[Rfam]
RNA sequence: UGACCCUUUUUAAGCCGAGGGUCACCUAGCCAACUGACGUUGUUAGUGAACCUGAUUGUUCACAAAUAUAUACAGCCAAUCACCUCGUAUUGUGAUUGGCUUUUUUUUU
Numbered sequence: 001u002g003a004c005c006c007u008u009u010u011u012a013a014g015c016c017g018a019g020g021g022u023c024a025c026c027u028a029g030c031c032a033a034c035u036g037a038c039g040u041u042g043u044u045a046g047u048g049a050a051c052c053u054g055a056u057u058g059u060u061c062a063c064a065a066a067u068a069u070a071u072a073c074a075g076c077c078a079a080u081c082a083c084c085u086c087g088u089a090u091u092g093u094g095a096u097u098g099g100c101u102u103u104u105u106u107u108u109u
Stems, first nucleotide, its partner, number of pairs: 001024006041072003046063006076099008
RNA: Qrr RNA